Record summary: MIR2593 microRNA precursor family: a 116-nucleotide sequence from Medicago truncatula. Rfam 15.1 lists 1,262 matches to the family in 6 species. Lineage of the source: Eukaryota > Magnoliopsida > Pentapetalae > fabids > Medicago. Its family is annotated with RISC complex and miRNA-mediated post-transcriptional gene silencing in the Gene Ontology. The family's consensus secondary structure was predicted with RNAalifold.

RNA sequence: UUAUAAGCAAAAAAACUACUUUUUAAGUUCAUUGAAUAAGUGAUGUACGUGGUCAUUGAUUUAGACCAUAUACAUCAUUUAUUCGGUGAACCUAAAAAGUAGAUUUUUGCUUAUAA
Numbered sequence: 001u002u003a004u005a006a007g008c009a010a011a012a013a014a015a016c017u018a019c020u021u022u023u024u025a026a027g028u029u030c031a032u033u034g035a036a037u038a039a040g041u042g043a044u045g046u047a048c049g050u051g052g053u054c055a056u057u058g059a060u061u062u063a064g065a066c067c068a069u070a071u072a073c074a075u076c077a078u079u080u081a082u083u084c085g086g087u088g089a090a091c092c093u094a095a096a097a098a099g100u101a102g103a104u105u106u107u108u109g110c111u112u113a114u115a116a
Stems, first nucleotide, its partner, number of pairs: 002115006009108005016102010028090018050068004
Dot-bracket structure: .((((((.(((((..((((((((((..((((((((((((((((((....((((...........))))....))))))))))))))))))..)))))))))).))))).)))))).